Mu-gpT-DE RNA: a 55-nucleotide sequence. The family's consensus secondary structure is taken from published work. The sequence is in the family's curated seed alignment.
RNA sequence: CCUUGACAGCCGCACUGGGCGGCUGACACUAGCCACGACAAGGAGAUUUUUCAUG
Numbered sequence: 001c002c003u004u005g006a007c008a009g010c011c012g013c014a015c016u017g018g019g020c021g022g023c024u025g026a027c028a029c030u031a032g033c034c035a036c037g038a039c040a041a042g043g044a045g046a047u048u049u050u051u052c053a054u055g
Stems, first nucleotide, its partner, number of pairs: 002042004007025005